[Rfam]
RNA: FMN riboswitch aptamer (RFN element)
RNA sequence: UUUAAUCUUCAGGGCAGGGUGAGUGAAAGCAAUUCCCGACCGGUGGUUAUAGUCCACGAGAGUUUCUUUGAAAUUCUGAUUUGGUGAGAUUCCAAAACCGACAGUAUAGUCUGGAUGGAAGAAGAAAAGA
Numbered sequence: 001u002u003u004a005a006u007c008u009u010c011a012g013g014g015c016a017g018g019g020u021g022a023g024u025g026a027a028a029g030c031a032a033u034u035c036c037c038g039a040c041c042g043g044u045g046g047u048u049a050u051a052g053u054c055c056a057c058g059a060g061a062g063u064u065u066c067u068u069u070g071a072a073a074u075u076c077u078g079a080u081u082u083g084g085u086g087a088g089a090u091u092c093c094a095a096a097a098c099c100g101a102c103a104g105u106a107u108a109g110u111c112u113g114g115a116u117g118g119a120a121g122a123a124g125a126a127a128a129g130a
Stems, first nucleotide, its partner, number of pairs: 003128001006125005017037003039110002041100002043057004052098002060076003080096005102113003